[Rfam]
RNA: Small nucleolar RNA snoR111
RNA sequence: UAACUGAAAUGAGAGACGGAUUGGAAGUGUCUCUUUGUUGAGAAAGAACAAUGAGGUAUAUAAAAGUCCAUGGCCGAGAUAUCGUUUCAGUCGUUAGUCAUCGAUUGACGAUUCGAUUGUUGCUCGUCCACAU
Numbered sequence: 001u002a003a004c005u006g007a008a009a010u011g012a013g014a015g016a017c018g019g020a021u022u023g024g025a026a027g028u029g030u031c032u033c034u035u036u037g038u039u040g041a042g043a044a045a046g047a048a049c050a051a052u053g054a055g056g057u058a059u060a061u062a063a064a065a066g067u068c069c070a071u072g073g074c075c076g077a078g079a080u081a082u083c084g085u086u087u088c089a090g091u092c093g094u095u096a097g098u099c100a101u102c103g104a105u106u107g108a109c110g111a112u113u114c115g116a117u118u119g120u121u122g123c124u125c126g127u128c129c130a131c132a133u
Stems, first nucleotide, its partner, number of pairs: 008039004013033006072129002075126004081117004090112007098104002